[Rfam]
RNA sequence: UGUUAAAAAAUUCAUCUAUUUCUAUUGUUAAAAACUGGCAUGGCUAACAGAAUAACUAGACAAUUACUUGUGGCACGCCACAUGUAACUCAUUCUAACAUACAUGGACCAGUUUUUAACAUUAAAAAUCGAUAGAAUUUUUGACA
Numbered sequence: 001u002g003u004u005a006a007a008a009a010a011u012u013c014a015u016c017u018a019u020u021u022c023u024a025u026u027g028u029u030a031a032a033a034a035c036u037g038g039c040a041u042g043g044c045u046a047a048c049a050g051a052a053u054a055a056c057u058a059g060a061c062a063a064u065u066a067c068u069u070g071u072g073g074c075a076c077g078c079c080a081c082a083u084g085u086a087a088c089u090c091a092u093u094c095u096a097a098c099a100u101a102c103a104u105g106g107a108c109c110a111g112u113u114u115u116u117a118a119c120a121u122u123a124a125a126a127a128u129c130g131a132u133a134g135a136a137u138u139u140u141u142g143a144c145a
Stems, first nucleotide, its partner, number of pairs: 002144008011135002014132003018128004023123002026120001028118006
Dot-bracket structure: .((((((((.((.(((.((((.((.(.((((((...............................................................................)))))).).)).)))).))).)).)))))))).
MIR7502 microRNA precursor family: a 145-nucleotide RNA sequence from Gossypium laxum.